[Rfam]
Nucleotides: 170
Base pairs, nucleotide, nucleotide: 001170002169003168004167005166006165007164008163009162012161013160015158016157017156018155019154020153021152022151023150024149025148026147027146028145029144030143031142032141033140034139035138036137037136038135039134055078058075060073061072062071064069
Number, partner (000 for none) and nucleotide at each position: 001170g002169c003168c004167a005166a006165a007164a008163u009162g010000u011000u012161g013160c014000c015158u016157u017156u018155a019154u020153c021152u022151g023150c024149a025148u026147u027146u028145g029144c030143a031142c032141c033140u034139g035138c036137a037136c038135c039134u040000u041000a042000c043000u044000u045000u046000u047000g048000u049000u050000u051000c052000u053000u054000u055078a056000a057000a058075a059000a060073u061072u062071u063000c064069a065000a066000c067000a068000a069064u070000c071062a072061a073060g074000a075058u076000c077000c078055u079000u080000g081000u082000u083000u084000u085000u086000c087000c088000u089000c090000u091000c092000a093000u094000u095000u096000c097000u098000a099000g100000a101000g102000u103000g104000u105000c106000a107000g108000a109000g110000a111000a112000a113000c114000u115000u116000u117000u118000u119000g120000a121000u122000c123000c124000a125000a126000g127000a128000a129000a130000a131000g132000a133000g134039a135038g136037g137036u138035g139034c140033a141032g142031g143030u144029g145028u146027a147026a148025g149024u150023g151022c152021a153020g154019g155018u156017g157016a158015a159000u160013g161012c162009c163008a164007u165006u166005u167004u168003g169002g170001u

The record is a 170-nucleotide RNA sequence from Manihot esculenta, which matches "MIR530 microRNA precursor family" in Rfam.
The organism belongs to Manihot, within Eukaryota.
The literature on the family includes a 2008 paper in Plant J by Lu et al., "Stress-responsive microRNAs in Populus".